The record is a 73-nucleotide sequence from a Thermoplasmata archaeon, which matches "tRNA" in Rfam. Rfam links the family to the GO term triplet codon-amino acid adaptor activity. The family's consensus secondary structure is taken from published work.

RNA sequence: AGCCUCGUAGUGUAGCGGUCAAUCAUGCGGGACUCUGGAUCCUGCGACCUCAGUUCGAAUCUGAGCGAGGCUA
Numbered sequence: 001a002g003c004c005u006c007g008u009a010g011u012g013u014a015g016c017g018g019u020c021a022a023u024c025a026u027g028c029g030g031g032a033c034u035c036u037g038g039a040u041c042c043u044g045c046g047a048c049c050u051c052a053g054u055u056c057g058a059a060u061c062u063g064a065g066c067g068a069g070g071c072u073a
Stems, first nucleotide, its partner, number of pairs: 001072007010026003028044005049065005
Rfam's curators write: Transfer RNA (tRNA) molecules are approximately 80 nucleotides in length. Taxonomically the source falls in Thermoplasmata (Archaea, Methanobacteriati, Thermoplasmatota).